Shown here is a 136-nucleotide sequence from Larimichthys crocea, a member of the family "Small nucleolar RNA SNORA51". Pairs were carried over by alignment from the consensus structure, which was predicted with PFOLD. The match comes from Rfam's covariance-model search (56 bits). From the family's description: ACA51 is a member of the H/ACA class of snoRNA that guide the sites of modification of uridines to pseudouridines.
RNA sequence: AUCCUCCUAAUGCUUACCACAGACAGUACACCAUAGAGUGCUGGCUGUAUAGAAACAGGAGGGACAUUAACCUCUCCUGACAAACCUGCUCUGCCAGCUGUUGUCUGGUGGGGCAGUGUUGUUAGGUGGGACAUCC
Dot-bracket structure: .(((((((...........(((...((((........))))...))).........)))))))..........(.((((........(((.((((((.......)))))).)))........)))).)........
Numbered sequence: 001a002u003c004c005u006c007c008u009a010a011u012g013c014u015u016a017c018c019a020c021a022g023a024c025a026g027u028a029c030a031c032c033a034u035a036g037a038g039u040g041c042u043g044g045c046u047g048u049a050u051a052g053a054a055a056c057a058g059g060a061g062g063g064a065c066a067u068u069a070a071c072c073u074c075u076c077c078u079g080a081c082a083a084a085c086c087u088g089c090u091c092u093g094c095c096a097g098c099u100g101u102u103g104u105c106u107g108g109u110g111g112g113g114c115a116g117u118g119u120u121g122u123u124a125g126g127u128g129g130g131a132c133a134u135c136c
Stems, first nucleotide, its partner, number of pairs: 002063007020047003026041004074128001076126004088114003092110006
NCBI's taxonomy places the organism under Eukaryota, Actinopteri, Ctenosquamata, Sciaenidae, Larimichthys. Its family is annotated with RNA processing and nucleolus in the Gene Ontology.